A member of the RNA family "mir-1426 microRNA precursor family" from Chaetura pelagica, 88 nucleotides long. Its family is annotated with miRNA-mediated post-transcriptional gene silencing and RISC complex in the Gene Ontology. The base pairs follow the family's consensus structure, which was predicted with RNAalifold.
RNA sequence: CAGGGAUGAUCCUCUUUCCUUAACUCACACUGCUGUGCCUUUUAAUUCAUUUCACAAUUGUGUGAGUUGAGUGCAGAGUGUCAGUCUG
Numbered sequence: 001c002a003g004g005g006a007u008g009a010u011c012c013u014c015u016u017u018c019c020u021u022a023a024c025u026c027a028c029a030c031u032g033c034u035g036u037g038c039c040u041u042u043u044a045a046u047u048c049a050u051u052u053c054a055c056a057a058u059u060g061u062g063u064g065a066g067u068u069g070a071g072u073g074c075a076g077a078g079u080g081u082c083a084g085u086c087u088g
Stems, first nucleotide, its partner, number of pairs: 004086002007083004012078002019071010034056004

Taxonomically the source falls in Chaetura (Eukaryota, Coelurosauria, Strisores, Apodidae).